Nucleotides: 076
Base pairs, nucleotide, nucleotide: 002074003073004072005071006070007069010066011065012064016061017060018059019058021056022055023054024053025052027050028049029048030047
Number, partner (000 for none) and nucleotide at each position: 001000c002074u003073g004072u005071a006070u007069a008000u009000a010066c011065c012064c013000u014000g015000u016061a017060g018059a019058u020000c021056c022055g023054a024053a025052u026000u027050u028049g029048u030047g031000u032000a033000a034000g035000g036000a037000a038000u039000u040000u041000u042000g043000u044000g045000g046000u047030c048029a049028c050027a051000c052025a053024u054023u055022c056021g057000u058019a059018u060017c061016u062000a063000g064012g065011g066010g067000a068000a069007u070006a071005u072004g073003u074002a075000g076000u